[Rfam]
Annotation
The family of this 61-nucleotide sequence from Staphylococcus saccharolyticus is "Ribosomal protein L13 leader". It scores 59 bits against the family's covariance model. This family is a putative r-protein leader autoregulatory structure found in B. subtilis and other low-GC Gram-positive bacteria. It is located in the 5' untranslated regions of mRNAs encoding the L13-S9 (rplM-rpsI) ribosomal protein operon. It is annotated as a cis-regulatory leader. Lineage of the source: Bacteria > Bacillati > Bacillota > Caryophanales > Staphylococcus. The family's consensus secondary structure was predicted with CMfinder.
RNA sequence: GGUAUUAUUUUAUAUCACCCCGCGAUAAGCCCCGGAAACUUAUUGUGUUACAAAAUAUAUA
Dot-bracket structure: .....((((((.........(((((((((.........)))))))))....))))))....
Numbered sequence: 001g002g003u004a005u006u007a008u009u010u011u012a013u014a015u016c017a018c019c020c021c022g023c024g025a026u027a028a029g030c031c032c033c034g035g036a037a038a039c040u041u042a043u044u045g046u047g048u049u050a051c052a053a054a055a056u057a058u059a060u061a
Stems, first nucleotide, its partner, number of pairs: 006057006021047009